RNA sequence: GGGGCCUUAGCUUUGGGCGGGUUUUGGUGUAUGAUAAGUUAACCUAUUGAAACCGUCCAAAACUGAGGCCAUC
Numbered sequence: 001g002g003g004g005c006c007u008u009a010g011c012u013u014u015g016g017g018c019g020g021g022u023u024u025u026g027g028u029g030u031a032u033g034a035u036a037a038g039u040u041a042a043c044c045u046a047u048u049g050a051a052a053c054c055g056u057c058c059a060a061a062a063c064u065g066a067g068g069c070c071a072u073c
Base pairs, nucleotide, nucleotide: 005068007066008065009064010063012061013060014059016057017056018055019054021053022052023051024050025049026048027047028046
RNA: mir-957 microRNA precursor family
Organism: Musca domestica